[Rfam]
RNA: Plant small nucleolar RNA U3
RNA sequence: ACGACCUUACUUGAACAGGAUCUGUUCUAUAGGUUGUACGUCCGAAUCCUUUACUCUAAAGAGAAGGGAAACCAAGCCUGGUUGAUGAAAAAUAGCUGAGGGGCUAGAGUGUGAGUAGCAGCUUGGGCCUUUUUGGGCUCAUGCGGUAGAGGAUCGUUCUCAGCUCAGUCUGGGCUGGGAUGGCCCCUUAGCUGUCAGACAGGUU
Numbered sequence: 001a002c003g004a005c006c007u008u009a010c011u012u013g014a015a016c017a018g019g020a021u022c023u024g025u026u027c028u029a030u031a032g033g034u035u036g037u038a039c040g041u042c043c044g045a046a047u048c049c050u051u052u053a054c055u056c057u058a059a060a061g062a063g064a065a066g067g068g069a070a071a072c073c074a075a076g077c078c079u080g081g082u083u084g085a086u087g088a089a090a091a092a093u094a095g096c097u098g099a100g101g102g103g104c105u106a107g108a109g110u111g112u113g114a115g116u117a118g119c120a121g122c123u124u125g126g127g128c129c130u131u132u133u134u135g136g137g138c139u140c141a142u143g144c145g146g147u148a149g150a151g152g153a154u155c156g157u158u159c160u161c162a163g164c165u166c167a168g169u170c171u172g173g174g175c176u177g178g179g180a181u182g183g184c185c186c187c188u189u190a191g192c193u194g195u196c197a198g199a200c201a202g203g204u205u
Base pairs, nucleotide, nucleotide: 001037002036003034005033006032007031013027014026015025016024017023018022042067043066047062048061050059051058076204077203078202079201080200095192096191097190098189099188100187101186102185103184104183105182106181108158109157110156111155118147119146121144122143124141125140126139127138128137129136130135160178161177162176163175164174165173166172167171